[Rfam]
RNA sequence: UUAGAUUUUCAAGCGCCAGGGCCACUUGUAAGCUGUUUACAGGUGGUUGACGAGGAAGGGGUUUAUCGAAUUAUCGGCGGGUGCCCCUCGGUCCGGUCACGACCGUUAACGGUACCUACAAAACCCGGAAGCAAUUCCGGGGACAAAGGGUACCAGGUGACACCA
Numbered sequence: 001u002u003a004g005a006u007u008u009u010c011a012a013g014c015g016c017c018a019g020g021g022c023c024a025c026u027u028g029u030a031a032g033c034u035g036u037u038u039a040c041a042g043g044u045g046g047u048u049g050a051c052g053a054g055g056a057a058g059g060g061g062u063u064u065a066u067c068g069a070a071u072u073a074u075c076g077g078c079g080g081g082u083g084c085c086c087c088u089c090g091g092u093c094c095g096g097u098c099a100c101g102a103c104c105g106u107u108a109a110c111g112g113u114a115c116c117u118a119c120a121a122a123a124c125c126c127g128g129a130a131g132c133a134a135u136u137c138c139g140g141g142g143a144c145a146a147a148g149g150g151u152a153c154c155a156g157g158u159g160a161c162a163c164c165a
Stems, first nucleotide, its partner, number of pairs: 020048008029039001057088005066077004089105005111154006124141007
The record is a 165-nucleotide RNA from Calderihabitans maritimus, which matches "glmS glucosamine-6-phosphate activated ribozyme aptamer" in Rfam. A search with the family's covariance model found it, with a score of 124 bits. From the family's description: This entry contains a glucosamine-6-phosphate activated ribozyme that is found in the mRNA for GlmS. GlmS is an enzyme that uses fructose-6-phosphate and glutamine to generate glucosamine-6-phosphate. Lineage of the source: Bacteria > Bacillati > Clostridia > Neomoorellales > Calderihabitans. Rfam classes the family as a riboswitch.